[Rfam]
RNA: Eukaryotic large subunit ribosomal RNA, nucleotides 2202 to 2454
Organism: Acipenser ruthenus
Nucleotides: 253
Base pairs, nucleotide, nucleotide: 015039016038017037018036019035024029040241041240043238044237045236046235047234048233049230050229051228052227053226055219056218057217058216059215060214061213062212064136068132069131070130071129077125078124079123080122081120082119083118085116086115091112092111093110094109095108097106098105242246
Number, partner (000 for none) and nucleotide at each position: 001000a002000a003000g004000u005000c006000g007000g008000c009000a010000a011000g012000c013000u014000g015039g016038a017037u018036c019035c020000g021000u022000a023000a024029c025000c026000u027000c028000g029024g030000g031000a032000u033000a034000a035019g036018g037017a038016u039015u040241g041240g042000c043238u044237c045236u046235a047234a048233g049230g050229g051228c052227u053226g054000g055219g056218c057217c058216g059215g060214u061213c062212g063000g064136g065000c066000u067000g068132g069131g070130g071129c072000g073000c074000g075000a076000a077125g078124c079123g080122g081120a082119g083118c084000u085116g086115g087000g088000c089000a090000c091112g092111c093110g094109c095108c096000g097106c098105g099000g100000c101000u102000g103000g104000a105098c106097g107000a108095g109094g110093c111092g112091c113000u114000g115086c116085c117000u118083g119082u120081u121000u122080u123079c124078g125077c126000c127000g128000g129071g130070c131069c132068c133000u134000u135000c136064c137000u138000u139000c140000c141000u142000c143000c144000c145000c146000u147000c148000u149000c150000u151000c152000c153000u154000c155000u156000u157000c158000c159000c160000g161000a162000g163000g164000g165000g166000g167000g168000u169000u170000g171000g172000g173000g174000g175000c176000a177000g178000c179000g180000g181000c182000g183000g184000a185000g186000g187000u188000c189000g190000g191000g192000g193000g194000u195000u196000u197000u198000c199000g200000c201000c202000g203000g204000g205000c206000g207000g208000g209000c210000g211000g212062c213061g214060g215059c216058c217057g218056g219055c220000g221000c222000c223000u224000a225000g226053c227052a228051g229050c230049u231000a232000a233048c234047u235046u236045a237044g238043a239000a240041c241040u242246g243000g244000u245000g246242c247000g248000g249000a250000c251000c252000a253000g